[Rfam]
The family of this 244-nucleotide RNA from Streptomyces roseolilacinus is "Streptomyces sRNA 4677". A reference for the family is Hindra et al. (2014), "Complex intra-operonic dynamics mediated by a small RNA in Streptomyces coelicolor", PLoS One. From the family's description: Located in the intergenic region between anti-sigma factor SCO4677 gene and a putative regulatory protein gene SCO4676. scr4677 expression requires the SCO4677 activity and scr4677 sRNA itself seem to affect the levels of the SCO4676-associated transcripts. The family has 12 seed sequences and 563 matches in Rfam 15.1. Lineage of the source: Bacteria > Actinomycetota > Actinomycetes > Streptomycetaceae > Streptomyces. It scores 137 bits against the family's covariance model.
RNA sequence: CGUUCCGGUGGGCCCGGUGGUCCUUCCCAAGGAACGGACGAAGGGAAAGAACCCUUCCCAGCCCCGCCCCGCCCACCCCGCGGGCGGUCUCACCCUGUCGAGUGAACCUGGUCAAACCGGCUGGUCGAACGCAGGGGUGCGCGUUCUACGCUCACCGCGACACCACCGCGCAUAUGCGUCGGCCCCCGCCGGGAUUCGCACUCCCAGGCGAGGGCCUGACCACGAGGAAGAAGAGACCUUCCUG
Numbered sequence: 001c002g003u004u005c006c007g008g009u010g011g012g013c014c015c016g017g018u019g020g021u022c023c024u025u026c027c028c029a030a031g032g033a034a035c036g037g038a039c040g041a042a043g044g045g046a047a048a049g050a051a052c053c054c055u056u057c058c059c060a061g062c063c064c065c066g067c068c069c070c071g072c073c074c075a076c077c078c079c080g081c082g083g084g085c086g087g088u089c090u091c092a093c094c095c096u097g098u099c100g101a102g103u104g105a106a107c108c109u110g111g112u113c114a115a116a117c118c119g120g121c122u123g124g125u126c127g128a129a130c131g132c133a134g135g136g137g138u139g140c141g142c143g144u145u146c147u148a149c150g151c152u153c154a155c156c157g158c159g160a161c162a163c164c165a166c167c168g169c170g171c172a173u174a175u176g177c178g179u180c181g182g183c184c185c186c187c188g189c190c191g192g193g194a195u196u197c198g199c200a201c202u203c204c205c206a207g208g209c210g211a212g213g214g215c216c217u218g219a220c221c222a223c224g225a226g227g228a229a230g231a232a233g234a235g236a237c238c239u240u241c242c243u244g
Base pairs, nucleotide, nucleotide: 008223009222010221016077017076018075019074090105091104092103093102095100120156122154123153124152181216182215183214184213185212187210188209189208191205192204193203194202226242227241228240229239230238